[Rfam]
RNA: Small nucleolar RNA SNORD73
Organism: Oryzias javanicus
RNA sequence: AACGUGUGAUGACUAACGGUUUCGGUCCCAUAUGACUGCCUGAUUACUUUACAUUGAGAUCAGCUGAUGUU
Numbered sequence: 001a002a003c004g005u006g007u008g009a010u011g012a013c014u015a016a017c018g019g020u021u022u023c024g025g026u027c028c029c030a031u032a033u034g035a036c037u038g039c040c041u042g043a044u045u046a047c048u049u050u051a052c053a054u055u056g057a058g059a060u061c062a063g064c065u066g067a068u069g070u071u
Stems, first nucleotide, its partner, number of pairs: 001071004